[Rfam]
RNA sequence: AACAUGCUUCCUUAGAUCCACCUUUGUGGAUGUUAAUUUUGAACUGAGUUCUACUUGUAAACUUUGUGUUUCUUGUAGUUCCAGUCAAAGAAACAUCCGGCACCUUUUGUGGUUGUACCCUCUUAAGGUGCUUGAGUCAUUGGCAUGUGAGAGAACUAUACCUUCUACUGUUCUUUGGUUCUGAUGGAAAU
Numbered sequence: 001a002a003c004a005u006g007c008u009u010c011c012u013u014a015g016a017u018c019c020a021c022c023u024u025u026g027u028g029g030a031u032g033u034u035a036a037u038u039u040u041g042a043a044c045u046g047a048g049u050u051c052u053a054c055u056u057g058u059a060a061a062c063u064u065u066g067u068g069u070u071u072c073u074u075g076u077a078g079u080u081c082c083a084g085u086c087a088a089a090g091a092a093a094c095a096u097c098c099g100g101c102a103c104c105u106u107u108u109g110u111g112g113u114u115g116u117a118c119c120c121u122c123u124u125a126a127g128g129u130g131c132u133u134g135a136g137u138c139a140u141u142g143g144c145a146u147g148u149g150a151g152a153g154a155a156c157u158a159u160a161c162c163u164u165c166u167a168c169u170g171u172u173c174u175u176u177g178g179u180u181c182u183g184a185u186g187g188a189a190a191u
Base pairs, nucleotide, nucleotide: 002148003147004146005145006144007143008142011136012135013134014133015132019130020129021128022127023126024125026122027099028098029097030096031095032094037091038090039089040088043085044084045083046082048081051078052077053076054075057072059071060070061069062068100116101115102114104112105111162186164184165183167179168178169177
Shown here is a 191-nucleotide RNA sequence from Echinops telfairi, a member of the family "Small nucleolar RNA SNORA53". Rfam's curators put it in the seed alignment. It is annotated as an H/ACA-box small nucleolar RNA.